The family of this 178-nucleotide sequence from Haladaptatus litoreus is "Sense overlapping transcript RNA 0042 (sot)". By type it is a small RNA. Rfam's curators write: It is associated with IS1341-type transposase (tnpB) genes, at the 3'-end in H. salinarum NRC-1. The tetraloop structural motif may be functional. A reference for the family is Gomes-Filho et al. (2015), "Sense overlapping transcripts in IS1341-type transposase genes are functional non-coding RNAs in archaea", RNA Biol.
RNA sequence: AGGUACUCCCGAAUCUCCCCUAUGAUGGGGGAGAUAGGGAUAACGGCUGGAUGGCACAGCCAGCGGUCCACCUGUUCGACCGUAGCGAGGGUGCUUUCGCCCCGCGAGAACAGGUCGUGGACCGCGAACCCUAAUAUCCCAACGCGGUACCGGGAAACCCCGGCGUUCACGCCGGGGA
Numbered sequence: 001a002g003g004u005a006c007u008c009c010c011g012a013a014u015c016u017c018c019c020c021u022a023u024g025a026u027g028g029g030g031g032a033g034a035u036a037g038g039g040a041u042a043a044c045g046g047c048u049g050g051a052u053g054g055c056a057c058a059g060c061c062a063g064c065g066g067u068c069c070a071c072c073u074g075u076u077c078g079a080c081c082g083u084a085g086c087g088a089g090g091g092u093g094c095u096u097u098c099g100c101c102c103c104g105c106g107a108g109a110a111c112a113g114g115u116c117g118u119g120g121a122c123c124g125c126g127a128a129c130c131c132u133a134a135u136a137u138c139c140c141a142a143c144g145c146g147g148u149a150c151c152g153g154g155a156a157a158c159c160c161c162g163g164c165g166u167u168c169a170c171g172c173c174g175g176g177g178a
Stems, first nucleotide, its partner, number of pairs: 003044002007040004013035003016031005045061005064124006071114007090103002093100002137155004142148002158177008